[Rfam]
RNA sequence: GGAAAAUGGAGGAUGUAUUACAGCAUACAUACUGACCAGCUCGUCUGGUCUCAAUGCUGUGGGAAAGUCUGAGAGUGCUAAUUGCUUUCUUGGCGGAGCAUGCGGUGAACGCAUGGCUGGGAACCAGAAACGAACCGAUGGAAGAGCUUUCGCGAUGACCCCUUUGGAUGAAACGGCCCAGCUCACUGCGAUUUUGAGUCAAAUGUACAUCGCCGGAUUCGUCCGGAAACUCAAUUCAGAUUACUCCUGUUUUCC
Numbered sequence: 001g002g003a004a005a006a007u008g009g010a011g012g013a014u015g016u017a018u019u020a021c022a023g024c025a026u027a028c029a030u031a032c033u034g035a036c037c038a039g040c041u042c043g044u045c046u047g048g049u050c051u052c053a054a055u056g057c058u059g060u061g062g063g064a065a066a067g068u069c070u071g072a073g074a075g076u077g078c079u080a081a082u083u084g085c086u087u088u089c090u091u092g093g094c095g096g097a098g099c100a101u102g103c104g105g106u107g108a109a110c111g112c113a114u115g116g117c118u119g120g121g122a123a124c125c126a127g128a129a130a131c132g133a134a135c136c137g138a139u140g141g142a143a144g145a146g147c148u149u150u151c152g153c154g155a156u157g158a159c160c161c162c163u164u165u166g167g168a169u170g171a172a173a174c175g176g177c178c179c180a181g182c183u184c185a186c187u188g189c190g191a192u193u194u195u196g197a198g199u200c201a202a203a204u205g206u207a208c209a210u211c212g213c214c215g216g217a218u219u220c221g222u223c224c225g226g227a228a229a230c231u232c233a234a235u236u237c238a239g240a241u242u243a244c245u246c247c248u249g250u251u252u253u254c255c
Stems, first nucleotide, its partner, number of pairs: 001255004007249003012211007020060005034050006069239005075186003085098001087097003099115006116182006135167003213226005

A member of the RNA family "Nuclear RNase P" from Tritrichomonas foetus, 255 nucleotides long. NCBI's taxonomy places the organism under Eukaryota, Metamonada, Tritrichomonadida, Tritrichomonadidae, Tritrichomonas. The base pairs follow the family's consensus structure, which is taken from published work. From the family's description: Ribonuclease P (RNase P) is a ubiquitous endoribonuclease, found in archaea, bacteria and eukarya as well as chloroplasts and mitochondria. The match comes from Rfam's covariance-model search (114 bits).